[Rfam]
RNA sequence: CUUUCAGUAUAAGUAUGUCCCAUGUAAUGUUUGGGAUAUAAUUAUACUAAAA
Numbered sequence: 001c002u003u004u005c006a007g008u009a010u011a012a013g014u015a016u017g018u019c020c021c022a023u024g025u026a027a028u029g030u031u032u033g034g035g036a037u038a039u040a041a042u043u044a045u046a047c048u049a050a051a052a
Stems, first nucleotide, its partner, number of pairs: 006048007014040003018036004022031001